[Rfam]
RNA sequence: ACGUGUUCCGGGGUCGGUGUAAUUCCGAGCCGGCGGUGAGAGUCCGCGACCCGAGCGCUUCGGCGCCCGGUUGACCUGGUGGAAUUCCAGGACCGACGGUGAAAGUCCGGAUGGGAGGCAACACGG
Numbered sequence: 001a002c003g004u005g006u007u008c009c010g011g012g013g014u015c016g017g018u019g020u021a022a023u024u025c026c027g028a029g030c031c032g033g034c035g036g037u038g039a040g041a042g043u044c045c046g047c048g049a050c051c052c053g054a055g056c057g058c059u060u061c062g063g064c065g066c067c068c069g070g071u072u073g074a075c076c077u078g079g080u081g082g083a084a085u086u087c088c089a090g091g092a093c094c095g096a097c098g099g100u101g102a103a104a105g106u107c108c109g110g111a112u113g114g115g116a117g118g119c120a121a122c123a124c125g126g
Stems, first nucleotide, its partner, number of pairs: 002125006008117001015027003029106002031095002033047004042093002051070002075091005097109003